Record summary:
Small nucleolar RNA SNORD116: a 96-nucleotide sequence from Muntiacus reevesi. Pairs were carried over by alignment from the consensus structure, which was predicted with PFOLD.

RNA sequence: GUAUUUUUGUGUUUUAAAAUGUGUUUUUACUUCCUUGGAAAAUCUGAACAAAAUGAGUGAGAACUCACUACCGUCUCCUCAUCGAAACUGAGGUCC
Numbered sequence: 001g002u003a004u005u006u007u008u009g010u011g012u013u014u015u016a017a018a019a020u021g022u023g024u025u026u027u028u029a030c031u032u033c034c035u036u037g038g039a040a041a042a043u044c045u046g047a048a049c050a051a052a053a054u055g056a057g058u059g060a061g062a063a064c065u066c067a068c069u070a071c072c073g074u075c076u077c078c079u080c081a082u083c084g085a086a087a088c089u090g091a092g093g094u095c096c
Base pairs, nucleotide, nucleotide: 001096003094004093005092030059031057032056033055035051036050037049
Description
Its family is annotated with nucleolus and RNA processing in the Gene Ontology. For this family Rfam cites "Identification of brain-specific and imprinted small nucleolar RNA genes exhibiting an unusual genomic organization" (Cavaille et al., Proc Natl Acad Sci U S A, 2000).